[Rfam]
RNA sequence: UUCUUAUCAAGAGUGGCGGAGGGAACUGGCCCGAAGAAGCCCGGCAACCUACUUUAAAGGAGUAAGGUGCUACUUCCAGCAAAAUGGCAUCCAUUUUGGAAGAUAAGGU
Numbered sequence: 001u002u003c004u005u006a007u008c009a010a011g012a013g014u015g016g017c018g019g020a021g022g023g024a025a026c027u028g029g030c031c032c033g034a035a036g037a038a039g040c041c042c043g044g045c046a047a048c049c050u051a052c053u054u055u056a057a058a059g060g061a062g063u064a065a066g067g068u069g070c071u072a073c074u075u076c077c078a079g080c081a082a083a084a085u086g087g088c089a090u091c092c093a094u095u096u097u098g099g100a101a102g103a104u105a106a107g108g109u
Stems, first nucleotide, its partner, number of pairs: 002108007013042001015041003021032003026079004043071004048067002050064004075101001080098006
The family of this 109-nucleotide RNA is "SAM riboswitch aptamer (S box leader)".